[Rfam]
This 113-nucleotide sequence from Cebus imitator belongs to the Rfam family "Y RNA".
Pairs were carried over by alignment from the consensus structure, which is taken from published work.
The match comes from Rfam's covariance-model search (62 bits).
RNA sequence: AGCUAGUCUGAAGGUAGUGAGUUAUCUCAAUUGAUUGUUCACAGUCAGUUACAGAACAAACUCCUUGUUCUACUCUUUUUCCCCUUCUCGCUACUGCACUUGACUAGUCUUAG
Numbered sequence: 001a002g003c004u005a006g007u008c009u010g011a012a013g014g015u016a017g018u019g020a021g022u023u024a025u026c027u028c029a030a031u032u033g034a035u036u037g038u039u040c041a042c043a044g045u046c047a048g049u050u051a052c053a054g055a056a057c058a059a060a061c062u063c064c065u066u067g068u069u070c071u072a073c074u075c076u077u078u079u080u081c082c083c084c085u086u087c088u089c090g091c092u093a094c095u096g097c098a099c100u101u102g103a104c105u106a107g108u109c110u111u112a113g
Base pairs, nucleotide, nucleotide: 002108003107004106005105006104007103008102010101011100014097015096016092017091018090019089020088021087044074047071048070